[Rfam]
RNA sequence: UUGUCCAGCAAGGCCAUUAACCAUAUCAACUCCGUAUGGGAGGACUUGCUGGAAGACA
Numbered sequence: 001u002u003g004u005c006c007a008g009c010a011a012g013g014c015c016a017u018u019a020a021c022c023a024u025a026u027c028a029a030c031u032c033c034g035u036a037u038g039g040g041a042g043g044a045c046u047u048g049c050u051g052g053a054a055g056a057c058a
Stems, first nucleotide, its partner, number of pairs: 004053009014043002021039006
The record is a 58-nucleotide sequence from Orthohepacivirus hominis, which matches "Hepatitis C virus stem-loop SL8001 RNA" in Rfam. Rfam describes the family as follows. Even though Hepatitis C virus (HCV) SL8001 is not required for overall replication, conformational changes in this motif tune the initial rate of replication. Lineage of the source: Viruses > Riboviria > Orthornavirae > Hepaciviridae > Orthohepacivirus. The family's consensus secondary structure was predicted with RNAfold. The literature on the family includes a 2016 paper in Mol Cell by Pirakitikulr et al., "The Coding Region of the HCV Genome Contains a Network of Regulatory RNA Structures".